[Rfam]
RNA sequence: CACCCUUUUAAAUGCAGUCCAGAGAGUCUGACAAAGGGGGAAAGACAAGGCCGAUUUUAUUCGGCUUUGCAAACCCUCUUUGUACAUAUUGGACAUAGAGGGUUUUUAAUU
Number, nucleotide and partner (000 for none) at each position: 001c000002a000003c038004c037005c036006u035007u034008u033009u000010a000011a000012a000013u000014g000015c030016a029017g028018u000019c026020c000021a000022g000023a000024g000025a000026g019027u000028c017029u016030g015031a000032c000033a008034a007035a006036g005037g004038g003039g000040g000041a000042a000043a000044g000045a000046c069047a068048a067049g066050g065051c064052c063053g062054a061055u000056u000057u000058u000059a000060u000061u054062c053063g052064g051065c050066u049067u048068u047069g046070c000071a105072a104073a103074c102075c101076c100077u099078c098079u097080u000081u095082g094083u093084a000085c000086a000087u000088a000089u000090u000091g000092g000093a083094c082095a081096u000097a079098g078099a077100g076101g075102g074103u073104u072105u071106u000107u000108a000109a000110u000111u000
This 111-nucleotide RNA from Neobacillus mesonae belongs to the Rfam family "PyrR binding site". A search with the family's covariance model found it, with a score of 60 bits.